Bacterial large signal recognition particle RNA: a 267-nucleotide RNA sequence from Anaerococcus prevotii. Pairs were carried over by alignment from the consensus structure, which is taken from published work. About the family: The signal recognition particle (SRP) is a universally conserved ribonucleoprotein involved in the co-translational targeting of proteins to membranes. On this family, see Rosenblad et al., Nucleic Acids Res 2003: "SRPDB: Signal Recognition Particle Database". The family is grouped with related families in Rfam's "SRP clan". The organism belongs to Anaerococcus prevotii, within Bacteria. The match comes from Rfam's covariance-model search (183 bits).

RNA sequence: AUGCACUAGACGGGGAACUAGCGGUGCCUUGUAACCUGCAAUCCGCUACAGCAGGGUUUAAGUCCCAAGUUAGGGCCUAAGUUUUUUAUUAAGACUUACAAUAUCGGUGUUGAUUGUUGGGUCUUACGCAACAGAAAGCUGUGAAUCAUGUCAGGACGGGAACGUAGCAGCAUUAAGCAGUACUUUCUGUGUGCCGUAAGGUCACCUAACAUGAGUCGUUGUUCUAAGACACUUUUAAAAGACUUAUGUUCGACCUUGGGUGUGCUU
Numbered sequence: 001a002u003g004c005a006c007u008a009g010a011c012g013g014g015g016a017a018c019u020a021g022c023g024g025u026g027c028c029u030u031g032u033a034a035c036c037u038g039c040a041a042u043c044c045g046c047u048a049c050a051g052c053a054g055g056g057u058u059u060a061a062g063u064c065c066c067a068a069g070u071u072a073g074g075g076c077c078u079a080a081g082u083u084u085u086u087u088a089u090u091a092a093g094a095c096u097u098a099c100a101a102u103a104u105c106g107g108u109g110u111u112g113a114u115u116g117u118u119g120g121g122u123c124u125u126a127c128g129c130a131a132c133a134g135a136a137a138g139c140u141g142u143g144a145a146u147c148a149u150g151u152c153a154g155g156a157c158g159g160g161a162a163c164g165u166a167g168c169a170g171c172a173u174u175a176a177g178c179a180g181u182a183c184u185u186u187c188u189g190u191g192u193g194c195c196g197u198a199a200g201g202u203c204a205c206c207u208a209a210c211a212u213g214a215g216u217c218g219u220u221g222u223u224c225u226a227a228g229a230c231a232c233u234u235u236u237a238a239a240a241g242a243c244u245u246a247u248g249u250u251c252g253a254c255c256u257u258g259g260g261u262g263u264g265c266u267u
Base pairs, nucleotide, nucleotide: 001267003265004264005263006262008059009058010057011056012030013029014028015027017025018024019023035055036054037053038052039051064260065259066258067257068256069255073251074250075249076248079245080244081243082242083241084240085239086238087237088236093230095228096227097226098225100223103220106217107216108215115211116210117209118208119207120206121205122204123200124199125198126197127196128195129191130190132189133188134187135186136185138181139180140179141178142177148173149172150171151170156165157164158163